[Rfam]
RNA sequence: CGUGCACCAGUGGGGUCCCUUAGCCAGGCCUGCACCCUCUCACAAUCUGGAAACCCUCAGGGGAUGUUGGAGAGCCAGUUUUGGCCCAAUCCCGCAGGCCAGGCUGAGGGACCCCACUGGUGCACU
Numbered sequence: 001c002g003u004g005c006a007c008c009a010g011u012g013g014g015g016u017c018c019c020u021u022a023g024c025c026a027g028g029c030c031u032g033c034a035c036c037c038u039c040u041c042a043c044a045a046u047c048u049g050g051a052a053a054c055c056c057u058c059a060g061g062g063g064a065u066g067u068u069g070g071a072g073a074g075c076c077a078g079u080u081u082u083g084g085c086c087c088a089a090u091c092c093c094g095c096a097g098g099c100c101a102g103g104c105u106g107a108g109g110g111a112c113c114c115c116a117c118u119g120g121u122g123c124a125c126u
Base pairs, nucleotide, nucleotide: 003124004123006121008119009118010117012115013114014113015112016111017110018109019108020107021106022105023104024103025102027100028099029098030097031096032095033094

A member of the RNA family "mir-9193 microRNA precursor family" from Myotis davidii, 126 nucleotides long. Rfam links the family to the GO terms RISC complex and miRNA-mediated post-transcriptional gene silencing.